[Rfam]
RNA sequence: UUUAGGAGCAGCCUCUGGUGAUGACUCUGCUCUCUCUGAUGGCUGUGGUGGUGAUGAGCUCAACCCAAAGCCUCUAAGAAGUUGGCUGAAGAGGCCGUUCCUCA
Numbered sequence: 001u002u003u004a005g006g007a008g009c010a011g012c013c014u015c016u017g018g019u020g021a022u023g024a025c026u027c028u029g030c031u032c033u034c035u036c037u038g039a040u041g042g043c044u045g046u047g048g049u050g051g052u053g054a055u056g057a058g059c060u061c062a063a064c065c066c067a068a069a070g071c072c073u074c075u076a077a078g079a080a081g082u083u084g085g086c087u088g089a090a091g092a093g094g095c096c097g098u099u100c101c102u103c104a
Stems, first nucleotide, its partner, number of pairs: 007099003011095005
This 104-nucleotide sequence from Bombycilla garrulus belongs to the Rfam family "Small nucleolar RNA SNORD125". On this family, see Yang et al., Nucleic Acids Res 2006: "snoSeeker: an advanced computational package for screening of guide and orphan snoRNA genes in the human genome". The family's RNA type in Rfam is C/D-box small nucleolar RNA.